[Rfam]
RNA sequence: AUGUAAGCAAAAAUAGUUUUUUUAGAUUCAUUGAAAAAGUGAUGUAUUUGGUCUAUAUUUUAGACUAAAUACAUCCAUUUUUCAAUGAAUCUAAAAAGACUACUUUUGCUUACAU
Numbered sequence: 001a002u003g004u005a006a007g008c009a010a011a012a013a014u015a016g017u018u019u020u021u022u023u024a025g026a027u028u029c030a031u032u033g034a035a036a037a038a039g040u041g042a043u044g045u046a047u048u049u050g051g052u053c054u055a056u057a058u059u060u061u062a063g064a065c066u067a068a069a070u071a072c073a074u075c076c077a078u079u080u081u082u083c084a085a086u087g088a089a090u091c092u093a094a095a096a097a098g099a100c101u102a103c104u105u106u107u108g109c110u111u112a113c114a115u
Stems, first nucleotide, its partner, number of pairs: 002114006009107004015101011027089012041075004049067004
RNA: MIR2593 microRNA precursor family
Organism: Trifolium pratense